[Rfam]
RNA sequence: UAGGGUCGUGUGAUGAUUUGACGCAUAGUUCAACUGAAUCUCUGUGAUUAAGUAAUUUUCAUGUCUUUCGCUCCUAUCUGACGACCCUU
Numbered sequence: 001u002a003g004g005g006u007c008g009u010g011u012g013a014u015g016a017u018u019u020g021a022c023g024c025a026u027a028g029u030u031c032a033a034c035u036g037a038a039u040c041u042c043u044g045u046g047a048u049u050a051a052g053u054a055a056u057u058u059u060c061a062u063g064u065c066u067u068u069c070g071c072u073c074c075u076a077u078c079u080g081a082c083g084a085c086c087c088u089u
Stems, first nucleotide, its partner, number of pairs: 004086005